[Rfam]
RNA sequence: GUCGGCUAUGGGGACAUGUGCCCGGAGACCUUUGGAGGAAAGCUGGUGGGCUCCAUGUGCGCCAUCGCAGGUGUGCUCACCAUCUCUCUGCCGGUCCCUGUCAUCGUGUCAAAC
Numbered sequence: 001g002u003c004g005g006c007u008a009u010g011g012g013g014a015c016a017u018g019u020g021c022c023c024g025g026a027g028a029c030c031u032u033u034g035g036a037g038g039a040a041a042g043c044u045g046g047u048g049g050g051c052u053c054c055a056u057g058u059g060c061g062c063c064a065u066c067g068c069a070g071g072u073g074u075g076c077u078c079a080c081c082a083u084c085u086c087u088c089u090g091c092c093g094g095u096c097c098c099u100g101u102c103a104u105c106g107u108g109u110c111a112a113a114c
Base pairs, nucleotide, nucleotide: 001114002113005110007108008107009106010105011104013102014101015100016099018097020095021094037077038076040074049063050062051061
RNA: Potassium channel RNA editing signal